A member of the RNA family "skipping-rope RNA", 81 nucleotides long. Rfam's curators put it in the seed alignment. The family's RNA type in Rfam is small RNA.

Nucleotides: 081
Stems, first nucleotide, its partner, number of pairs: 001081006009074001012030005021066004032050001035046003055073005
Number, partner (000 for none) and nucleotide at each position: 001081u002080a003079g004078c005077c006076a007000c008000u009074g010000a011000g012030g013029a014028c015027g016026g017000a018000a019000c020000g021066g022065g023064c024063g025000a026016c027015c028014g029013u030012c031000a032050c033000c034000a035046c036045g037044c038000g039000u040000u041000u042000a043000a044037g045036c046035g047000g048000c049000g050032g051000a052000g053000a054000u055073g056072u057071g058070g059069g060000a061000a062000a063024u064023g065022c066021c067000a068000c069059c070058c071057c072056a073055c074009c075000u076006u077005g078004g079003u080002u081001a